The record is a 96-nucleotide sequence, which matches "PhotoRC-II RNA" in Rfam. The base pairs follow the family's consensus structure, which is taken from published work. It is annotated as a cis-regulatory element.
[Rfam]
RNA sequence: UAACUGUUCUUAACACCCCGUAAACCAAGACCUCUAGGGUGUCUAAACACGUCUUUCAUAUCCUUGCCUUAGGGUGGCGAGGAGAUAGUAAAACCA
Numbered sequence: 001u002a003a004c005u006g007u008u009c010u011u012a013a014c015a016c017c018c019c020g021u022a023a024a025c026c027a028a029g030a031c032c033u034c035u036a037g038g039g040u041g042u043c044u045a046a047a048c049a050c051g052u053c054u055u056u057c058a059u060a061u062c063c064u065u066g067c068c069u070u071a072g073g074g075u076g077g078c079g080a081g082g083a084g085a086u087a088g089u090a091a092a093a094c095c096a
Stems, first nucleotide, its partner, number of pairs: 014041005021036002027055005061083007